[Rfam]
This 106-nucleotide RNA from Trema orientale belongs to the Rfam family "Small nucleolar RNA Z279/snoR105/snoR108".
Pairs were carried over by alignment from the consensus structure, which was predicted with PFOLD.
Rfam classes the family as a C/D-box small nucleolar RNA.
Rfam describes the family as follows. This family includes the plant snoRNAs known as Z279, snoR105 and snoR108.
The family is grouped with related families in Rfam's "snoU13 clan".

Nucleotides: 106
Stems, first nucleotide, its partner, number of pairs: 001106004014097005023041005044084007063077004
Number, partner (000 for none) and nucleotide at each position: 001106g002105g003104g004103a005000u006000g007000u008000g009000a010000u011000g012000a013000g014097u015096g016095g017094u018093u019000c020000a021000u022000g023041u024040u025039c026038g027037c028000g029000u030000u031000u032000a033000u034000g035000a036000u037027g038026c039025g040024a041023g042000a043000u044084g045083g046082g047081u048080g049079u050078c051000c052000g053000c054000c055000c056000c057000a058000a059000a060000g061000c062000c063077u064076g065075g066074u067000u068000a069000c070000g071000a072000c073000a074066a075065u076064c077063g078050g079049g080048c081047a082046c083045c084044c085000c086000c087000a088000u089000c090000u091000a092000a093018a094017a095016c096015c097014a098000u099000c100000u101000g102000a103004u104003c105002c106001c